Rfam assigns this 49-nucleotide RNA from Phoenix dactylifera to the family "Plastid-rps18 3UTR RNA". From the family's description: Plastid rps18 is a non-coding RNA (ncRNA) present in plastids. It was identified as a short stem-loop motif in the 3 prime untranslate region (3UTR) of rps18 gene. The family's RNA type in Rfam is cis-regulatory element.

RNA sequence: CGCAAGUAUUUUACGAUUAAGAAGCAAUUGCUUCUUGUACAGAUUUUCU
Numbered sequence: 001c002g003c004a005a006g007u008a009u010u011u012u013a014c015g016a017u018u019a020a021g022a023a024g025c026a027a028u029u030g031c032u033u034c035u036u037g038u039a040c041a042g043a044u045u046u047u048c049u
Stems, first nucleotide, its partner, number of pairs: 018037008
On this family, see Richter et al., Plant Commun 2023: "Retrograde signaling in plants: A critical review focusing on the GUN pathway and beyond".
The match comes from Rfam's covariance-model search (62 bits).